Shown here is a 357-nucleotide part of an RNA from Halonotius sp. J07HN4, a member of the family "Archaeal large subunit ribosomal RNA". A search with the family's covariance model found it, with a score of 2697 bits. For this family Rfam cites "The comparative RNA web (CRW) site: an online database of comparative sequence and structure information for ribosomal, intron, and other RNAs" (Cannone et al., BMC Bioinformatics, 2002). Lineage of the source: Archaea > Halobacteria > Halobacteriales > Haloferacaceae > Halonotius.
Nucleotides: 357
Stems, first nucleotide, its partner, number of pairs: 018036006037354004045334004051314002056080006065073002087310003091125002096119006102112003129146005149306006163296003169284008180273005186203005208256004217246005226236003262267001320329002336348003
Number, partner (000 for none) and nucleotide at each position: 001000u002000c003000a004000c005000a006000g007000u008000a009000g010000c011000a012000g013000c014000g015000a016000u017000a018036g019035u020034c021033g022032g023031g024000u025000g026000a027000g028000a029000a030000c031023c032022u033021c034020g035019a036018c037354g038353a039352c040351c041000u042000u043000a044000c045334g046333a047332g048331c049000a050000a051314g052313g053000g054000u055000u056080c057079c058078u059077u060076g061075g062000c063000a064000c065073u066072g067000u068000c069000a070000a071000u072066c073065a074000g075061c076060c077059a078058a079057g080056g081000g082000u083000u084000a085000g086000u087310c088309g089308a090000u091125c092124c093000u094000a095000a096119g097118u098117c099116c100115g101114c102112u103111c104110g105000c106000a107000a108000c109000u110104c111103g112102a113000c114101g115100c116099g117098g118097a119096c120000a121000a122000c123000a124092g125091g126000g127000a128000a129146a130145c131144u132143g133142g134000u135000u136000a137000a138000u139000a140000u141000u142133c143132c144131a145130g146129u147000a148000c149306c150305a151304a152303c153302a154301c155000c156000a157000u158000u159000c160000a161000a162000a163296g164295c165294c166000a167000a168000c169284g170283c171282u172281u173280u174279g175278g176277g177000a178000a179000a180273c181272a182271u183270u184269g185000c186203a187202c188201c189200g190199g191000g192000c193000u194000u195000u196000c197000g198000c199190c200189c201188g202187g203186u204000c205000g206000a207000a208256u209255c210254g211253g212000u213000c214000a215000c216000g217246c218245c219244c220243g221242u222000g223000g224000a225000a226236g227235c228234c229000g230000u231000c232000a233000u234228g235227g236226c237000a238000c239000g240000a241000a242221g243220c244219g245218g246217g247000u248000a249000a250000c251000u252000a253211u254210c255209g256208a257000g258000a259000u260000a261000g262267g263000g264000u265000a266000a267262c268000g269184c270183a271182g272181u273180g274000g275000u276000a277176c278175c279174u280173a281172g282171a283170g284169c285000c286000c287000g288000u289000g290000a291000a292000a293000c294165g295164g296163c297000g298000a299000g300000u301154g302153u303152g304151u305150u306149g307000u308089u309088c310087g311000u312000a313052c314051c315000a316000a317000g318000a319000u320329c321328c322000g323000a324000c325000a326000c327000a328321g329320g330000u331048g332047c333046u334045c335000a336348g337347g338346c339000a340000g341000c342000g343000a344000a345000a346338g347337c348336c349000a350000a351040g352039g353038u354037c355000u356000g357000u